[Rfam]
RNA sequence: GCUGCCCCUACAGGCGUUGCAGGCAUGGCUUCUGUGCUGUGCUUGUGUCAGUAGGUGGCACAGAGAAGCAGGCUAGGUCUACGCUCAGUGCUUUGAUGGGUGAGCACUCAGAAUGAUUACUAGCCUGACAAA
Numbered sequence: 001g002c003u004g005c006c007c008c009u010a011c012a013g014g015c016g017u018u019g020c021a022g023g024c025a026u027g028g029c030u031u032c033u034g035u036g037c038u039g040u041g042c043u044u045g046u047g048u049c050a051g052u053a054g055g056u057g058g059c060a061c062a063g064a065g066a067a068g069c070a071g072g073c074u075a076g077g078u079c080u081a082c083g084c085u086c087a088g089u090g091c092u093u094u095g096a097u098g099g100g101u102g103a104g105c106a107c108u109c110a111g112a113a114u115g116a117u118u119a120c121u122a123g124c125c126u127g128a129c130a131a132a
Stems, first nucleotide, its partner, number of pairs: 003060004007055005013049003019046004024041006068129001069127008082115002085112002088109001089106005